The family of this 142-nucleotide sequence from Vicugna pacos is "Small nucleolar RNA SNORA11". The base pairs follow the family's consensus structure, which was predicted with RNAalifold. NCBI's taxonomy places the organism under Eukaryota, Vertebrata, Gnathostomata, Tetrapoda, Vicugna. Rfam links the family to the GO terms RNA processing and nucleolus. The literature on the family includes a 2005 paper in Nucleic Acids Res by Gu et al., "A novel experimental approach for systematic identification of box H/ACA snoRNAs from eukaryotes". The match comes from Rfam's covariance-model search (79 bits). Rfam's curators write: U107 (SNORA11) is a member of the H/ACA class of snoRNAs that guide the sites of modification of uridines to pseudouridines. This snoRNA was identified by RT-PCR from blood cells and its expression confirmed by Northern blot analysis. There is no predicted target for this guide snRNA.

[Rfam]
RNA sequence: GAGGUGACACUGCUCAGAGCAGGGGGCCUGAAGAGAUAGCGUCUCUGUUCACAACACACCUGACAGGAAUCUGGGCUCACUGUGACCAAGCGCCCCAAACUGGGGGCCUUCCUACCUUCCUAUGAACACAUAUACUACACGU
Numbered sequence: 001g002a003g004g005u006g007a008c009a010c011u012g013c014u015c016a017g018a019g020c021a022g023g024g025g026g027c028c029u030g031a032a033g034a035g036a037u038a039g040c041g042u043c044u045c046u047g048u049u050c051a052c053a054a055c056a057c058a059c060c061u062g063a064c065a066g067g068a069a070u071c072u073g074g075g076c077u078c079a080c081u082g083u084g085a086c087c088a089a090g091c092g093c094c095c096c097a098a099a100c101u102g103g104g105g106g107c108c109u110u111c112c113u114a115c116c117u118u119c120c121u122a123u124g125a126a127c128a129c130a131u132a133u134a135c136u137a138c139a140c141g142u
Base pairs, nucleotide, nucleotide: 002061003060004059005058006057011056012055017050018049019048020047021046022045023044024043025042026040027039074135077132081128082127083126086124089117090116093105094104095103096102097101